[Rfam]
RNA sequence: AAUACUCCAGCGUAAAGAGAUAUAAAGAACGCACAUUCAGUGGAAACUGUAAUCCACAAUUAAACAAGACAGAUAUAAAGAAUGGAGGCAU
Numbered sequence: 001a002a003u004a005c006u007c008c009a010g011c012g013u014a015a016a017g018a019g020a021u022a023u024a025a026a027g028a029a030c031g032c033a034c035a036u037u038c039a040g041u042g043g044a045a046a047c048u049g050u051a052a053u054c055c056a057c058a059a060u061u062a063a064a065c066a067a068g069a070c071a072g073a074u075a076u077a078a079a080g081a082a083u084g085g086a087g088g089c090a091u
Stems, first nucleotide, its partner, number of pairs: 005019003010032004034084005040057005
Overview:
GP20-a RNA: a 91-nucleotide RNA. It is annotated as a cis-regulatory element. The base pairs follow the family's consensus structure, which is taken from published work.